[Rfam]
RNA sequence: GCACGUGUGAUGUGGCAGAACAGGAUGAGACACUGAUGCUGUAAACGCUUUCUGAUGUG
Numbered sequence: 001g002c003a004c005g006u007g008u009g010a011u012g013u014g015g016c017a018g019a020a021c022a023g024g025a026u027g028a029g030a031c032a033c034u035g036a037u038g039c040u041g042u043a044a045a046c047g048c049u050u051u052c053u054g055a056u057g058u059g
Stems, first nucleotide, its partner, number of pairs: 002059004012051001014049003021041003025037002
About this RNA
Shown here is a 59-nucleotide RNA from Notiomystis cincta, a member of the family "Small nucleolar RNA Z39". Pairs were carried over by alignment from the consensus structure, which was predicted with PFOLD. A search with the family's covariance model found it, with a score of 56 bits. Its family is annotated with nucleolus and RNA processing in the Gene Ontology. The family's RNA type in Rfam is C/D-box small nucleolar RNA. On this family, see Chen et al., Nucleic Acids Res 2003: "The high diversity of snoRNAs in plants: identification and comparative study of 120 snoRNA genes from Oryza sativa". NCBI's taxonomy places the organism under Eukaryota, Metazoa, Chordata, Aves, Notiomystis.